[Rfam]
RNA sequence: GUAAUAUAAGAACCCGUCUCUUAAUUUUUAACUAAGAAAAACUAAAAACCGGUUCUUAAAUAAGAGUUUUAAGAGACGGUUUUUAGUUUUCCUUAGUUAAAGUUAAGAAACGGUUCUUAUAUUAC
Numbered sequence: 001g002u003a004a005u006a007u008a009a010g011a012a013c014c015c016g017u018c019u020c021u022u023a024a025u026u027u028u029u030a031a032c033u034a035a036g037a038a039a040a041a042c043u044a045a046a047a048a049c050c051g052g053u054u055c056u057u058a059a060a061u062a063a064g065a066g067u068u069u070u071a072a073g074a075g076a077c078g079g080u081u082u083u084u085a086g087u088u089u090u091c092c093u094u095a096g097u098u099a100a101a102g103u104u105a106a107g108a109a110a111c112g113g114u115u116c117u118u119a120u121a122u123u124a125c
Stems, first nucleotide, its partner, number of pairs: 001125013015112003019108009029099008038090003042086007
Dot-bracket structure: (((((((((((((.(((.(((((((((.((((((((.(((.(((((((...............................))))))).))).))))))))))))))))).))))))))))))))))